[Rfam]
RNA sequence: UCUCACUGAUGAGUUGCUUCUGACUUUCAUUCUUCUGAGUUUGCCGAACCCAGAUGCCAUUCCUGGGAAGG
Numbered sequence: 001u002c003u004c005a006c007u008g009a010u011g012a013g014u015u016g017c018u019u020c021u022g023a024c025u026u027u028c029a030u031u032c033u034u035c036u037g038a039g040u041u042u043g044c045c046g047a048a049c050c051c052a053g054a055u056g057c058c059a060u061u062c063c064u065g066g067g068a069a070g071g
Stems, first nucleotide, its partner, number of pairs: 001071003004067001

The record is a 71-nucleotide RNA from Nomascus leucogenys, which matches "Small nucleolar RNA SNORD59" in Rfam.
Gene Ontology terms of the family: nucleolus and RNA processing.
The organism belongs to Nomascus, within Eukaryota.
The family's consensus secondary structure was predicted with ILM.
On this family, see Galardi et al., Mol Cell Biol 2002: "Purified box C/D snoRNPs are able to reproduce site-specific 2'-O-methylation of target RNA in vitro".
The family is grouped with related families in Rfam's "SNORD59 clan".
By type it is a C/D-box small nucleolar RNA.
It scores 72 bits against the family's covariance model.